RNA sequence: GCCCGUCACUACUACUGAUAGGAUGAUUUAGUGAGGCCCUCGGAUCGGCCCCGCCGGGUCAGCCCACUGCCCUGGCAGAGCGCUGAGAAGACAGGCGAACUUGACUAUCUAGAGGAAGUAAAAGUCAUAACAAAGUUUCCGUAGGUGAACCUGCGGAGAGAUCAUUA
Numbered sequence: 001g002c003c004c005g006u007c008a009c010u011a012c013u014a015c016u017g018a019u020a021g022g023a024u025g026a027u028u029u030a031g032u033g034a035g036g037c038c039c040u041c042g043g044a045u046c047g048g049c050c051c052c053g054c055c056g057g058g059u060c061a062g063c064c065c066a067c068u069g070c071c072c073u074g075g076c077a078g079a080g081c082g083c084u085g086a087g088a089a090g091a092c093a094g095g096c097g098a099a100c101u102u103g104a105c106u107a108u109c110u111a112g113a114g115g116a117a118g119u120a121a122a123a124g125u126c127a128u129a130a131c132a133a134a135g136u137u138u139c140c141g142u143a144g145g146u147g148a149a150c151c152u153g154c155g156g157a158g159a160g161a162u163c164a165u166u167a
Stems, first nucleotide, its partner, number of pairs: 001131001005126001007124001010120004015115002019111001021110005027104002030101003035096001037094001040091002045086005051078001053076003056072004136159010
Shown here is a 167-nucleotide part of an RNA from Pan troglodytes, a member of the family "Eukaryotic small subunit ribosomal RNA". Pairs were carried over by alignment from the consensus structure, which is taken from published work. The family is grouped with related families in Rfam's "SSU clan". Gene Ontology terms of the family: ribosome and structural constituent of ribosome.